RNA sequence: AACAAAACACGCGGGAGCUCGUACCGAAACGGGCUGAGAGGGCAGCUAGGUGUCGGCUUUUCGACCCUGGGGCUGUCGACCGCCUGAACCUGACCGGGUAAUGCCGGCGUAGGGAGCUUUGCCAUGACGGCA
Numbered sequence: 001a002a003c004a005a006a007a008c009a010c011g012c013g014g015g016a017g018c019u020c021g022u023a024c025c026g027a028a029a030c031g032g033g034c035u036g037a038g039a040g041g042g043c044a045g046c047u048a049g050g051u052g053u054c055g056g057c058u059u060u061u062c063g064a065c066c067c068u069g070g071g072g073c074u075g076u077c078g079a080c081c082g083c084c085u086g087a088a089c090c091u092g093a094c095c096g097g098g099u100a101a102u103g104c105c106g107g108c109g110u111a112g113g114g115a116g117c118u119u120u121g122c123c124a125u126g127a128c129g130g131c132a
Stems, first nucleotide, its partner, number of pairs: 006120002010116001011083004017034005041077007089113004094107004
The record is a 132-nucleotide RNA sequence from Crossiella cryophila, which matches "TPP riboswitch aptamer (THI element)" in Rfam. Vitamin B(1) in its active form thiamin pyrophosphate (TPP) is an essential coenzyme that is synthesised by coupling of pyrimidine and thiazole moieties in bacteria. The match comes from Rfam's covariance-model search (55 bits). The source organism's lineage runs through Bacteria, Bacillati, Actinomycetota, Pseudonocardiales and Crossiella.